[Rfam]
RNA sequence: UUUAGGUAUGGUGACAUGGUACCCAAGACGAUUACAGGGAAGAUUGUGGGUGGCGUGUGCUCACUUAGCGGUGUGCUUGUCAUCGCCCUGCCCGUCCCUGUGAUCGUUUCGAAU
Number, nucleotide and partner (000 for none) at each position: 001u000002u113003u000004a000005g110006g000007u000008a107009u106010g105011g104012u000013g000014a101015c100016a099017u000018g097019g096020u000021a095022c094023c000024c000025a000026a000027g000028a000029c000030g000031a000032u000033u000034a000035c000036a000037g077038g076039g000040a074041a000042g000043a000044u000045u000046g000047u000048g000049g000050g062051u000052g000053g000054c000055g000056u000057g000058u000059g000060c000061u000062c050063a000064c000065u000066u000067a000068g000069c000070g000071g000072u000073g000074u040075g000076c038077u037078u000079g000080u000081c000082a000083u000084c000085g000086c000087c000088c000089u000090g000091c000092c000093c000094g022095u021096c019097c018098c000099u016100g015101u014102g000103a000104u011105c010106g009107u008108u000109u000110c005111g000112a000113a002114u000

Shown here is a 114-nucleotide RNA sequence from Notodromas monacha, a member of the family "Potassium channel RNA editing signal". It scores 86 bits against the family's covariance model.